[Rfam]
RNA sequence: UGGCUAAAAAAUAACUUAUUCUGUAGCCAUUUUGAGUUAUGAUAAUUAUUAUGUUAAUUUAUAAGAUUAUAGUAACUCCUUACUUAGGGGUUUACUAUAACAUUAUGGUAAAUAUCCCCAUGUGUUAUAGUAACUCUAUUAUCGUAAAUAUGUAUUGACAUUAUCGUAAAUUAGUAUAUAAAAUUAUCGUGAGGUGGCAAUAGAAUAACUUAUUUUCA
Numbered sequence: 001u002g003g004c005u006a007a008a009a010a011a012u013a014a015c016u017u018a019u020u021c022u023g024u025a026g027c028c029a030u031u032u033u034g035a036g037u038u039a040u041g042a043u044a045a046u047u048a049u050u051a052u053g054u055u056a057a058u059u060u061a062u063a064a065g066a067u068u069a070u071a072g073u074a075a076c077u078c079c080u081u082a083c084u085u086a087g088g089g090g091u092u093u094a095c096u097a098u099a100a101c102a103u104u105a106u107g108g109u110a111a112a113u114a115u116c117c118c119c120a121u122g123u124g125u126u127a128u129a130g131u132a133a134c135u136c137u138a139u140u141a142u143c144g145u146a147a148a149u150a151u152g153u154a155u156u157g158a159c160a161u162u163a164u165c166g167u168a169a170a171u172u173a174g175u176a177u178a179u180a181a182a183a184u185u186a187u188c189g190u191g192a193g194g195u196g197g198c199a200a201u202a203g204a205a206u207a208a209c210u211u212a213u214u215u216u217c218a
Stems, first nucleotide, its partner, number of pairs: 008216007016208009026198008039190009050178013065165003069161002074155001080147004087142001089140003093132011107117002
Dot-bracket structure: .......(((((((.(((((((((.((((((((.....(((((((((..(((((((((((((..(((.((...(.....((((...(.(((.(((((((((((...((.......))....))))))))))).....))).).)))).......)....)).))))))))))))))))...))))))))))))))))).))))))))).)))))))..